[Rfam]
RNA: Tick-borne Flavivirus 3' UTR cis-acting replication element (CRE)
Organism: Magnetospirillum molischianum
RNA sequence: UCCCCCAGGAAACUGGGGGGGCGGUUCUUGUUCUCCCUGAGCCACCACCAUCCAGGCACAGAUAGCCUGACAAGGAGAUGGUGUGUGACUCGGAAAAACACCCGCU
Numbered sequence: 001u002c003c004c005c006c007a008g009g010a011a012a013c014u015g016g017g018g019g020g021g022c023g024g025u026u027c028u029u030g031u032u033c034u035c036c037c038u039g040a041g042c043c044a045c046c047a048c049c050a051u052c053c054a055g056g057c058a059c060a061g062a063u064a065g066c067c068u069g070a071c072a073a074g075g076a077g078a079u080g081g082u083g084u085g086u087g088a089c090u091c092g093g094a095a096a097a098a099c100a101c102c103c104g105c106u
Base pairs, nucleotide, nucleotide: 002019003018004017005016006015007014008013020106021105022104023103024102029100030099031098032097037093038092039091040090041089043087044086045085046083047082048081049080050079051078052077053069054068055067056066057065